[Rfam]
RNA sequence: AGAGUCUUACAGGAAAGGAAUAGCGAACCAUCCUGACCCCGAGUCAUGCACGUGUCUUCGCAAGGGGGCGCGCGAAGCGUUGGCAGGGGCACAGGCAGGCAGGGUAUUGAGCUGCGAAAUCAAUCUUUACGUCCGGGGUGCCGACGCCGUUCGGCGCAGCGGAAGGCCACAUUAUGGGUGACGAAACACGCGAGCCAUCCAUGAACCCUGCGCAGCCAGAGACCC
Numbered sequence: 001a002g003a004g005u006c007u008u009a010c011a012g013g014a015a016a017g018g019a020a021u022a023g024c025g026a027a028c029c030a031u032c033c034u035g036a037c038c039c040c041g042a043g044u045c046a047u048g049c050a051c052g053u054g055u056c057u058u059c060g061c062a063a064g065g066g067g068g069c070g071c072g073c074g075a076a077g078c079g080u081u082g083g084c085a086g087g088g089g090c091a092c093a094g095g096c097a098g099g100c101a102g103g104g105u106a107u108u109g110a111g112c113u114g115c116g117a118a119a120u121c122a123a124u125c126u127u128u129a130c131g132u133c134c135g136g137g138g139u140g141c142c143g144a145c146g147c148c149g150u151u152c153g154g155c156g157c158a159g160c161g162g163a164a165g166g167c168c169a170c171a172u173u174a175u176g177g178g179u180g181a182c183g184a185a186a187c188a189c190g191c192g193a194g195c196c197a198u199c200c201a202u203g204a205a206c207c208c209u210g211c212g213c214a215g216c217c218a219g220a221g222a223c224c225c
Stems, first nucleotide, its partner, number of pairs: 010035005017029002021193001023191002037089004043084004047079002049074001051072009108219001109217001111216006134210006140167003145161003172204009182194001

Group II catalytic intron D1-D4-6: a 225-nucleotide sequence. It is one of the family's seed sequences. Rfam 15.1 lists 1,617 matches to the family in 661 species. Rfam links the family to the GO term Group II intron splicing. The pairing is the family consensus, mapped onto this sequence. The literature on the family includes a 2001 paper in EMBO J by Chu et al., "Control of branch-site choice by a group II intron".